[Rfam]
A member of the RNA family "c-di-GMP-I riboswitch aptamer" from Nitrosomonas oligotropha, 87 nucleotides long. About the family: GEMM was predicted in a large-scale screen for bacterial structured RNA regulatory elements.
RNA sequence: AUAUGAAAAAGGCAAACUCUGCGAAAGCAGGGGACGCAAAGUCACUGAUCUAACGGGCCAAUGCCCCAGGAUGGCAGGACUGCCAGA
Number, nucleotide and partner (000 for none) at each position: 001a000002u000003a000004u000005g000006a000007a000008a000009a000010a000011g000012g037013c036014a000015a000016a000017c032018u031019c030020u029021g028022c027023g000024a000025a000026a000027g022028c021029a020030g019031g018032g017033g000034a000035c000036g013037c012038a000039a000040a081041g080042u079043c078044a000045c077046u076047g075048a072049u071050c070051u000052a000053a000054c000055g066056g065057g064058c063059c000060a000061a000062u000063g058064c057065c056066c055067c000068a000069g000070g050071a049072u048073g000074g000075c047076a046077g045078g043079a042080c041081u040082g000083c000084c000085a000086g000087a000